[Rfam]
RNA sequence: AUGCAUUCUAUUCGUUUAAGAUAAGCUGGCAAUAAAGAAGCGGUAAGAUCAUCCAUGGUGGGCUUUUUUGUUGUGCUUAUUUUGCGAAUUGAGACAUAGAUAGGGGUGAAGUGUAACCAUUUGAGGUUAUACCUUUUGGCCAAUGUCUCUUUGACGUGAUAUGCAGACUAAAAGCCCGCACUGCGGAUUUUAGUCUGCUUUUUAU
Number, nucleotide and partner (000 for none) at each position: 001a000002u000003g000004c000005a000006u093007u092008c091009u000010a089011u088012u087013c086014g085015u084016u000017u000018a000019a082020g081021a080022u079023a078024a077025g076026c075027u000028g000029g074030c073031a072032a071033u070034a069035a068036a067037g066038a065039a064040g063041c062042g000043g000044u000045a000046a000047g000048a000049u061050c060051a059052u058053c057054c000055a000056u000057g053058g052059u051060g050061g049062g041063c040064u039065u038066u037067u036068u035069u034070g033071u032072u031073g030074u029075g026076c025077u024078u023079a022080u021081u020082u019083u000084g015085c014086g013087a012088a011089u010090u000091g008092a007093g006094a146095c145096a144097u143098a000099g000100a000101u000102a000103g000104g000105g000106g000107u000108g000109a000110a135111g000112u131113g000114u000115a128116a127117c126118c000119a000120u000121u000122u000123g000124a000125g000126g117127u116128u115129a000130u000131a112132c000133c000134u000135u110136u000137u000138g000139g000140c000141c000142a000143a097144u096145g095146u094147c000148u000149c000150u000151u000152u000153g000154a000155c000156g000157u000158g000159a000160u000161a200162u000163g198164c197165a196166g195167a000168c193169u192170a000171a190172a189173a188174g000175c000176c186177c185178g184179c183180a000181c000182u000183g179184c178185g177186g176187a000188u173189u172190u171191u000192a169193g168194u000195c166196u165197g164198c163199u000200u161201u000202u000203u000204a000205u000